[Rfam]
RNA sequence: UGAGAGAACUCGGGUGAAGGAACUAGGCAAAAUGGUACCGUAACUUCGGGAGAAGGUACGCCGGUCGAUGUGAAGGACUUGCUCCGUAAGCAUUGACCGGUCGAAGAUACUAGGUGGCUGCGACUGUUUAUUAAAAACACAGUACUCUGCAAACACGAAAGUGGACGUAUAGGGUAUGACGCCUGCCCGGUGCCGGAAGGUUAAUUGAUGGGGUUAGCUUCGGCGAAGCUCUUGAUCGAAGCCCCGGUAAACGGCGGCCGUAACUAUAACGGUCCUAAGGUAGCGAAAUUCCUUGUCGGGUAAGUUCCGACCUGCACGAAUGGCGUAACGACGGCCACACUGUCUCCACCCGAGACUCA
Numbered sequence: 001u002g003a004g005a006g007a008a009c010u011c012g013g014g015u016g017a018a019g020g021a022a023c024u025a026g027g028c029a030a031a032a033u034g035g036u037a038c039c040g041u042a043a044c045u046u047c048g049g050g051a052g053a054a055g056g057u058a059c060g061c062c063g064g065u066c067g068a069u070g071u072g073a074a075g076g077a078c079u080u081g082c083u084c085c086g087u088a089a090g091c092a093u094u095g096a097c098c099g100g101u102c103g104a105a106g107a108u109a110c111u112a113g114g115u116g117g118c119u120g121c122g123a124c125u126g127u128u129u130a131u132u133a134a135a136a137a138c139a140c141a142g143u144a145c146u147c148u149g150c151a152a153a154c155a156c157g158a159a160a161g162u163g164g165a166c167g168u169a170u171a172g173g174g175u176a177u178g179a180c181g182c183c184u185g186c187c188c189g190g191u192g193c194c195g196g197a198a199g200g201u202u203a204a205u206u207g208a209u210g211g212g213g214u215u216a217g218c219u220u221c222g223g224c225g226a227a228g229c230u231c232u233u234g235a236u237c238g239a240a241g242c243c244c245c246g247g248u249a250a251a252c253g254g255c256g257g258c259c260g261u262a263a264c265u266a267u268a269a270c271g272g273u274c275c276u277a278a279g280g281u282a283g284c285g286a287a288a289u290u291c292c293u294u295g296u297c298g299g300g301u302a303a304g305u306u307c308c309g310a311c312c313u314g315c316a317c318g319a320a321u322g323g324c325g326u327a328a329c330g331a332c333g334g335c336c337a338c339a340c341u342g343u344c345u346c347c348a349c350c351c352g353a354g355a356c357u358c359a
Stems, first nucleotide, its partner, number of pairs: 001359004009354008018345003035059005044049001060101012102106001114338007121330002125139003142177008150167001154163003180325004185255003190252002192248005199243003210232005217224002256274006275279001285312001295311006